c-di-GMP-I riboswitch aptamer: a 90-nucleotide RNA from Ferrimonas aestuarii. A search with the family's covariance model found it, with a score of 74 bits. GEMM was predicted in a large-scale screen for bacterial structured RNA regulatory elements. Genes associated with GEMM are involved in a diverse array of functions, including chemotaxis regulation, signal transduction, secretion and chitin. NCBI's taxonomy places the organism under Bacteria, Pseudomonadati, Gammaproteobacteria, Ferrimonadaceae, Ferrimonas.

[Rfam]
RNA sequence: AGCAGACAAAGGCAAACUCAGCGAAAGCUGAGGACGCAAUAUCACCGGUCUAAAGAUCACCUUGUGAUCCAUGACAGCGGGAUUACCUCA
Numbered sequence: 001a002g003c004a005g006a007c008a009a010a011g012g013c014a015a016a017c018u019c020a021g022c023g024a025a026a027g028c029u030g031a032g033g034a035c036g037c038a039a040u041a042u043c044a045c046c047g048g049u050c051u052a053a054a055g056a057u058c059a060c061c062u063u064g065u066g067a068u069c070c071a072u073g074a075c076a077g078c079g080g081g082a083u084u085a086c087c088u089c090a
Base pairs, nucleotide, nucleotide: 012037013036017032018031019030020029021028022027041083042082043081045080046079047078048075049074050073055069056068057067058066059065060064